[Rfam]
RNA sequence: GGGCAUUCAGAAGGCUUGCUAUCUGGGCUACACACAGGGGACCUGGUUUCUCUCACAACCCGCCCAGGGGAAAGUCCCCGGACUCCCGGCAGAAAGUGCCCUGGCUGAAGCCAGUGUCGGCCCGCGGCUCACCGUUGUGAAGCUGAGAAGUCCGUUGGACGGAGCUUGGUGAUCGCAGGUCGACUUUGUCAGCGUUACUAGUAAUGCAAGUGUGCGCGCGCGCAGCAACAGAACGGGGCUCAUUCUCGGAAUGCA
Numbered sequence: 001g002g003g004c005a006u007u008c009a010g011a012a013g014g015c016u017u018g019c020u021a022u023c024u025g026g027g028c029u030a031c032a033c034a035c036a037g038g039g040g041a042c043c044u045g046g047u048u049u050c051u052c053u054c055a056c057a058a059c060c061c062g063c064c065c066a067g068g069g070g071a072a073a074g075u076c077c078c079c080g081g082a083c084u085c086c087c088g089g090c091a092g093a094a095a096g097u098g099c100c101c102u103g104g105c106u107g108a109a110g111c112c113a114g115u116g117u118c119g120g121c122c123c124g125c126g127g128c129u130c131a132c133c134g135u136u137g138u139g140a141a142g143c144u145g146a147g148a149a150g151u152c153c154g155u156u157g158g159a160c161g162g163a164g165c166u167u168g169g170u171g172a173u174c175g176c177a178g179g180u181c182g183a184c185u186u187u188g189u190c191a192g193c194g195u196u197a198c199u200a201g202u203a204a205u206g207c208a209a210g211u212g213u214g215c216g217c218g219c220g221c222g223c224a225g226c227a228a229c230a231g232a233a234c235g236g237g238g239c240u241c242a243u244u245c246u247c248g249g250a251a252u253g254c255a
Base pairs, nucleotide, nucleotide: 003254004253005252006251007250008249010247011246014211015210016209017208018207019206022068023067024066025065026064027063028062037052038051039050040049041048073240074239076238077237078236079235088100089099090098091097101114102113103112104111105110117183118182119181121179122178124176125175126174129172130171131170132169140167141166142165143164150160151159152158153157213224214223215222

The family of this 255-nucleotide RNA sequence from Cyclopterus lumpus is "RNase MRP". It scores 168 bits against the family's covariance model. Taxonomically the source falls in Cyclopterus (Eukaryota, Chordata, Gnathostomata, Euacanthomorphacea). About the family: RNase MRP is an enzymatically active ribonucleoprotein with two distinct roles in eukaryotes.